[Rfam]
The record is a 115-nucleotide sequence from Medicago truncatula, which matches "MIR2593 microRNA precursor family" in Rfam. The source organism's lineage runs through Eukaryota, Streptophyta, Tracheophyta, eudicotyledons and Medicago. The family's consensus secondary structure was predicted with RNAalifold.
RNA sequence: UUAUGAGCAAAAGUCUACUUUUUAGAUUCAUUCAAUAAAUGAUGUAUGUGGUAUAUAUAAUAGACCACAUAUAUCAUUUAUUGAAUAAACCUAAAAGGUUGAUUUUUGCUUAUAA
Numbered sequence: 001u002u003a004u005g006a007g008c009a010a011a012a013g014u015c016u017a018c019u020u021u022u023u024a025g026a027u028u029c030a031u032u033c034a035a036u037a038a039a040u041g042a043u044g045u046a047u048g049u050g051g052u053a054u055a056u057a058u059a060a061u062a063g064a065c066c067a068c069a070u071a072u073a074u075c076a077u078u079u080a081u082u083g084a085a086u087a088a089a090c091c092u093a094a095a096a097g098g099u100u101g102a103u104u105u106u107u108g109c110u111u112a113u114a115a
Base pairs, nucleotide, nucleotide: 002114003113004112005111006110007109009107010106011105012104013103015101017099018098019097020096021095022094023093024092025091027089028088030086031085032084033083034082035081036080037079038078039077040076041075042074043073044072049067050066051065052064
Its family is annotated with RISC complex and miRNA-mediated post-transcriptional gene silencing in the Gene Ontology.